Annotation
The record is a 139-nucleotide RNA sequence from Desulfurella amilsii, which matches "c-di-AMP riboswitch aptamer (ydaO/yuaA leader)" in Rfam. The literature on the family includes a 2004 paper in Proc Natl Acad Sci U S A by Barrick et al., "New RNA motifs suggest an expanded scope for riboswitches in bacterial genetic control". It scores 85 bits against the family's covariance model.

Nucleotides: 139
Stems, first nucleotide, its partner, number of pairs: 011124004018035007036119006046057002058104003066080004084097003
Number, partner (000 for none) and nucleotide at each position: 001000a002000a003000u004000a005000u006000a007000u008000a009000u010000a011124a012123g013122u014121c015000g016000a017000g018035g019034c020033u021032u022031u023030a024029g025000g026000u027000a028000g029024c030023u031022a032021a033020a034019g035018c036119g037118c038117g039116g040115g041114g042000g043000a044000c045000c046057c047056a048000a049000u050000u051000u052000a053000a054000u055000a056047u057046g058104g059103g060102g061000c062000g063000a064000a065000u066080u067079c068078c069077u070000c071000a072000g073000u074000u075000u076000g077069a078068g079067g080066a081000u082000a083000a084097g085096g086095c087000a088000c089000u090000c091000a092000u093000a094000a095086g096085c097084u098000c099000g100000a101000g102060c103059c104058c105000g106000u107000c108000a109000g110000c111000u112000a113000a114041c115040c116039u117038c118037g119036u120000a121014g122013a123012c124011u125000u126000u127000u128000a129000u130000g131000a132000g133000g134000g135000u136000g137000c138000a139000a